[Rfam]
RNA sequence: CCCUUGCCCCGAUAUAGAAGUGAAAUCCUUUUGCGCCGGGGCAGGGCGCAAAAGAUUGGAGCGUAUAGCGGGAAGAGCU
Numbered sequence: 001c002c003c004u005u006g007c008c009c010c011g012a013u014a015u016a017g018a019a020g021u022g023a024a025a026u027c028c029u030u031u032u033g034c035g036c037c038g039g040g041g042c043a044g045g046g047c048g049c050a051a052a053a054g055a056u057u058g059g060a061g062c063g064u065a066u067a068g069c070g071g072g073a074a075g076a077g078c079u
Stems, first nucleotide, its partner, number of pairs: 009071003015067002020062002024057004030052008
Shown here is a 79-nucleotide sequence from Flavobacterium sp. HMWF030, a member of the family "Flavo-1 RNA". It scores 52 bits against the family's covariance model.